[Rfam]
Notes: Rfam assigns this 58-nucleotide sequence to the family "msiK RNA". The sequence is in the family's curated seed alignment.

RNA sequence: AGCGAUCACCUAUCACAACGGAUCGUCCGGCACGUACCUGCCGGUGAAGGAGAAACAA
Numbered sequence: 001a002g003c004g005a006u007c008a009c010c011u012a013u014c015a016c017a018a019c020g021g022a023u024c025g026u027c028c029g030g031c032a033c034g035u036a037c038c039u040g041c042c043g044g045u046g047a048a049g050g051a052g053a054a055a056c057a058a
Stems, first nucleotide, its partner, number of pairs: 010050002013047003027044006